Record summary: Bacterial RNase P class A: a 397-nucleotide sequence from Pseudogemmobacter humi. Its family is annotated with ribonuclease P activity, dimeric ribonuclease P complex and tRNA processing in the Gene Ontology. From the family's description: Ribonuclease P (RNase P) is a ubiquitous endoribonuclease, found in archaea, bacteria and eukarya as well as chloroplasts and mitochondria. NCBI's taxonomy places the organism under Bacteria, Pseudomonadota, Alphaproteobacteria, Paracoccaceae, Pseudogemmobacter. Pairs were carried over by alignment from the consensus structure, which is taken from published work. It scores 270 bits against the family's covariance model.
[Rfam]
RNA sequence: GCGGAUGGCCGGAUGACCGCGGGGGCGGUGACGCCCGCGAGGAAAGUCCGGACUCCAUGAAGUAAGGGCGCCGGGUAACGCCCGGCCGGGGCAACCCGAGGGAAAGCGCCACAGAGAAGAGACAGCCCCGCUUGCCGGGGUGAUGGUGAAACGGUGGGGUAAGAGCCCACCGCGCGACUGGCAACAGAAGCGGCACGGCAAGCCCCGCCCGGAGCAAUGCCGAAUAGGGGCCUCGCGCGGGGGCCGGUGGGGCAACCCAUACCGCCCGCAGGGACGCUUCAGCCCGAGAGGCCCGGGUUGGCAGCCAGACCCUUUCCGUAAGGAAAGGGCAAGAGGAAUGGUCAUCCAGGGCGGUCCGCCGCCUGGACAGAAUCCGGCUUACAGGCCAUCCGCGCGU
Numbered sequence: 001g002c003g004g005a006u007g008g009c010c011g012g013a014u015g016a017c018c019g020c021g022g023g024g025g026c027g028g029u030g031a032c033g034c035c036c037g038c039g040a041g042g043a044a045a046g047u048c049c050g051g052a053c054u055c056c057a058u059g060a061a062g063u064a065a066g067g068g069c070g071c072c073g074g075g076u077a078a079c080g081c082c083c084g085g086c087c088g089g090g091g092c093a094a095c096c097c098g099a100g101g102g103a104a105a106g107c108g109c110c111a112c113a114g115a116g117a118a119g120a121g122a123c124a125g126c127c128c129c130g131c132u133u134g135c136c137g138g139g140g141u142g143a144u145g146g147u148g149a150a151a152c153g154g155u156g157g158g159g160u161a162a163g164a165g166c167c168c169a170c171c172g173c174g175c176g177a178c179u180g181g182c183a184a185c186a187g188a189a190g191c192g193g194c195a196c197g198g199c200a201a202g203c204c205c206c207g208c209c210c211g212g213a214g215c216a217a218u219g220c221c222g223a224a225u226a227g228g229g230g231c232c233u234c235g236c237g238c239g240g241g242g243g244c245c246g247g248u249g250g251g252g253c254a255a256c257c258c259a260u261a262c263c264g265c266c267c268g269c270a271g272g273g274a275c276g277c278u279u280c281a282g283c284c285c286g287a288g289a290g291g292c293c294c295g296g297g298u299u300g301g302c303a304g305c306c307a308g309a310c311c312c313u314u315u316c317c318g319u320a321a322g323g324a325a326a327g328g329g330c331a332a333g334a335g336g337a338a339u340g341g342u343c344a345u346c347c348a349g350g351g352c353g354g355u356c357c358g359c360c361g362c363c364u365g366g367a368c369a370g371a372a373u374c375c376g377g378c379u380u381a382c383a384g385g386c387c388a389u390c391c392g393c394g395c396g397u
Stems, first nucleotide, its partner, number of pairs: 001393010011382001012346007020039002023036005044380003048377005053214004062279001066210005071085005086100001087098004101205002106203002108199003123145002125141006153171006172194001173192003178187003218303004228294006271285003310329008